This 58-nucleotide RNA sequence from Actinomyces glycerinitolerans belongs to the Rfam family "msiK RNA". The base pairs follow the family's consensus structure, which is taken from published work. It scores 52 bits against the family's covariance model. The organism belongs to Actinomyces, within Bacteria. By type it is a cis-regulatory element.

RNA sequence: CAUCGGCACCUUUCACUCGGAUCGUCCGGCACGUACCUGUCGGUGAAGGGAUACCCCU
Numbered sequence: 001c002a003u004c005g006g007c008a009c010c011u012u013u014c015a016c017u018c019g020g021a022u023c024g025u026c027c028g029g030c031a032c033g034u035a036c037c038u039g040u041c042g043g044u045g046a047a048g049g050g051a052u053a054c055c056c057c058u
Stems, first nucleotide, its partner, number of pairs: 009050007026043006